RNA sequence: UGACGGGGGCCCGCACAAGCGGUGGAGCAUGUGGUUUAAUUCGAUGCAACGCGAAGAACCUUACCUACUCUUGACAGCCAGCGAAUCCUCUAGAAAUAGAGGAGUGCCUUCGGGAACGCUGAGACAGGUGCUGCAUGGCUGUCGUCAGCUCGUGUUGUGAAAUGUUGGGUUAAGUCCCGCAACGAGCGCAACCCCUAUUCUUUGUUGCCAGUGAUUUAGUCAGGAACUCAAAGGAGACUGCCGGUGAUAAACCGGAGGAAGGUGGGGAUGACGUCAAGUCAUCAUGGCCCUUACGAGUAGGGCUACACACGUGCUACAAUGGCGUAUACAGAGAGAGGCAAGCCUGCGAAGAGAAGCGGAACUCAAAAAGUACGUCAAAAUCCGGAUUGGAGUCUGCAACUCGACUCCAUGAAGUCGGAAUCGCUAGUAAUCGCGGAUCAGCAUGCCGCGGUGAAUACGUUCCCGGGCCUUGUACACACCGCCCGUCACACCAUGGAAGUGGGUUGCAAAAGAAGUAGGUAGCUUAACCUUUAAGGAUGGCGCUUACCACUUUGUGAUUCAUGACUGGGGUGAAGUCGUAACAAGG
Numbered sequence: 001u002g003a004c005g006g007g008g009g010c011c012c013g014c015a016c017a018a019g020c021g022g023u024g025g026a027g028c029a030u031g032u033g034g035u036u037u038a039a040u041u042c043g044a045u046g047c048a049a050c051g052c053g054a055a056g057a058a059c060c061u062u063a064c065c066u067a068c069u070c071u072u073g074a075c076a077g078c079c080a081g082c083g084a085a086u087c088c089u090c091u092a093g094a095a096a097u098a099g100a101g102g103a104g105u106g107c108c109u110u111c112g113g114g115a116a117c118g119c120u121g122a123g124a125c126a127g128g129u130g131c132u133g134c135a136u137g138g139c140u141g142u143c144g145u146c147a148g149c150u151c152g153u154g155u156u157g158u159g160a161a162a163u164g165u166u167g168g169g170u171u172a173a174g175u176c177c178c179g180c181a182a183c184g185a186g187c188g189c190a191a192c193c194c195c196u197a198u199u200c201u202u203u204g205u206u207g208c209c210a211g212u213g214a215u216u217u218a219g220u221c222a223g224g225a226a227c228u229c230a231a232a233g234g235a236g237a238c239u240g241c242c243g244g245u246g247a248u249a250a251a252c253c254g255g256a257g258g259a260a261g262g263u264g265g266g267g268a269u270g271a272c273g274u275c276a277a278g279u280c281a282u283c284a285u286g287g288c289c290c291u292u293a294c295g296a297g298u299a300g301g302g303c304u305a306c307a308c309a310c311g312u313g314c315u316a317c318a319a320u321g322g323c324g325u326a327u328a329c330a331g332a333g334a335g336a337g338g339c340a341a342g343c344c345u346g347c348g349a350a351g352a353g354a355a356g357c358g359g360a361a362c363u364c365a366a367a368a369a370g371u372a373c374g375u376c377a378a379a380a381u382c383c384g385g386a387u388u389g390g391a392g393u394c395u396g397c398a399a400c401u402c403g404a405c406u407c408c409a410u411g412a413a414g415u416c417g418g419a420a421u422c423g424c425u426a427g428u429a430a431u432c433g434c435g436g437a438u439c440a441g442c443a444u445g446c447c448g449c450g451g452u453g454a455a456u457a458c459g460u461u462c463c464c465g466g467g468c469c470u471u472g473u474a475c476a477c478a479c480c481g482c483c484c485g486u487c488a489c490a491c492c493a494u495g496g497a498a499g500u501g502g503g504u505u506g507c508a509a510a511a512g513a514a515g516u517a518g519g520u521a522g523c524u525u526a527a528c529c530u531u532u533a534a535g536g537a538u539g540g541c542g543c544u545u546a547c548c549a550c551u552u553u554g555u556g557a558u559u560c561a562u563g564a565c566u567g568g569g570g571u572g573a574a575g576u577c578g579u580a581a582c583a584a585g586g
Stems, first nucleotide, its partner, number of pairs: 001476002003473003007470007015460002019424005024317001026315008034306002040055004064301007078123001079121005086103007105116001107114002127290002130288004136284002138279003141275001143273002148187006154163003166179004193267004198235007208224002212222003238258002241255005321376007333364003338357002344351002383414001388409007430452007479585001481582001484578002489572004494567003499562012515547006522541003528536002
About this RNA:
Shown here is a 586-nucleotide part of an RNA from Candidatus Arsenophonus lipoptenae, a member of the family "Bacterial small subunit ribosomal RNA". NCBI's taxonomy places the organism under Bacteria, Pseudomonadati, Pseudomonadota, Enterobacterales, Arsenophonus. Its Rfam clan is "SSU clan".